[Rfam]
RNA sequence: CCGGGCAUUUUCUUUAUUGACAAUGCCAAUGAAAUGACAAACGCGCAGUCCUAUGGCGAUCAGGUCGUUGCAACCAACCCGUGUGGUAAAGUCGCUUCGUUUGCCUCACGUAAAAAAAUCGGAUGAAUUGCUGGGAAGCUACGGGGUUUAACCUAAGCCGAUCAGCAGCCAAGCUAGCCAGGGAUGGCUGGAAGGUUCAGAGACUAGUCAUACACCACUAGAACAGUGAUGAAAUGGCCACGAGCGUCCGAUGCUUCGGCAGCGAUAAGUCGAAGUAAAGAGAUAGUCCGACACUCCAUUGAAAAGUGGAG
Numbered sequence: 001c002c003g004g005g006c007a008u009u010u011u012c013u014u015u016a017u018u019g020a021c022a023a024u025g026c027c028a029a030u031g032a033a034a035u036g037a038c039a040a041a042c043g044c045g046c047a048g049u050c051c052u053a054u055g056g057c058g059a060u061c062a063g064g065u066c067g068u069u070g071c072a073a074c075c076a077a078c079c080c081g082u083g084u085g086g087u088a089a090a091g092u093c094g095c096u097u098c099g100u101u102u103g104c105c106u107c108a109c110g111u112a113a114a115a116a117a118a119u120c121g122g123a124u125g126a127a128u129u130g131c132u133g134g135g136a137a138g139c140u141a142c143g144g145g146g147u148u149u150a151a152c153c154u155a156a157g158c159c160g161a162u163c164a165g166c167a168g169c170c171a172a173g174c175u176a177g178c179c180a181g182g183g184a185u186g187g188c189u190g191g192a193a194g195g196u197u198c199a200g201a202g203a204c205u206a207g208u209c210a211u212a213c214a215c216c217a218c219u220a221g222a223a224c225a226g227u228g229a230u231g232a233a234a235u236g237g238c239c240a241c242g243a244g245c246g247u248c249c250g251a252u253g254c255u256u257c258g259g260c261a262g263c264g265a266u267a268a269g270u271c272g273a274a275g276u277a278a279a280g281a282g283a284u285a286g287u288c289c290g291a292c293a294c295u296c297c298a299u300u301g302a303a304a305a306g307u308g309g310a311g
Stems, first nucleotide, its partner, number of pairs: 005026005011020002118252005124246002129167006138158003168196002200289001202288005254275007296309005
RNA: Group I catalytic intron